[Rfam]
RNA sequence: UAAGAUAGCUAGGGGAGCUCACGUGGGCUGAGAGUCUUUGCCCCGCAUUAGCGGGGCAAGGAGACCCUCUGAACCUGUUCGGGUAAUUCCAGCGAAGGGAAGCGGUAAAAAGGGUGG
Dot-bracket structure: .....(.(((((((..((((....))))......((((...................))))...)))).....(((...(((......)).)...)))..))).)............